[Rfam]
RNA sequence: GGGGCAGGGGGGUCUUCGCCGUCCCGGCGAAGCCUGCCCUCAUCGGCCGUGCACCCCGCACGGUCGCUGGUUGUCGCUCGGGGGUGAUCGCCG
Numbered sequence: 001g002g003g004g005c006a007g008g009g010g011g012g013u014c015u016u017c018g019c020c021g022u023c024c025c026g027g028c029g030a031a032g033c034c035u036g037c038c039c040u041c042a043u044c045g046g047c048c049g050u051g052c053a054c055c056c057c058g059c060a061c062g063g064u065c066g067c068u069g070g071u072u073g074u075c076g077c078u079c080g081g082g083g084g085u086g087a088u089c090g091c092c093g
Base pairs, nucleotide, nucleotide: 001040002039003038004037005036006035007034008033014032015031016030017029018028019027020026045065046064047063048062049061050060051059052058
Dot-bracket structure: ((((((((.....(((((((.....)))))))))))))))....((((((((.....))))))))............................
Shown here is a 93-nucleotide RNA from Peterkaempfera bronchialis, a member of the family "che1 RNA". A search with the family's covariance model found it, with a score of 84 bits. The family's RNA type in Rfam is small RNA. Taxonomically the source falls in Peterkaempfera (Bacteria, Bacillati, Actinomycetota, Streptomycetaceae).